Notes:
L17-Actino-Proteobacteria ribosomal protein leader: a 52-nucleotide sequence from Nocardioides halotolerans. It is annotated as a cis-regulatory leader. On this family, see Eckert and Weinberg, BMC Microbiol 2020: "Discovery of 20 novel ribosomal leader candidates in bacteria and archaea". It is one of the family's seed sequences.
RNA sequence: CGGCUGACCGCACGGUCGGCCGUCUACCCCGGUACCUGACACGGCCGGAGAG
Numbered sequence: 001c002g003g004c005u006g007a008c009c010g011c012a013c014g015g016u017c018g019g020c021c022g023u024c025u026a027c028c029c030c031g032g033u034a035c036c037u038g039a040c041a042c043g044g045c046c047g048g049a050g051a052g
Stems, first nucleotide, its partner, number of pairs: 001022009024052002027050001029048005